[Rfam]
RNA sequence: ACGGAGGAAGCCGAAAAUCCGUAACUAAGAGUAGGAA
Numbered sequence: 001a002c003g004g005a006g007g008a009a010g011c012c013g014a015a016a017a018u019c020c021g022u023a024a025c026u027a028a029g030a031g032u033a034g035g036a037a
Base pairs, nucleotide, nucleotide: 002021003020004019005018011035012034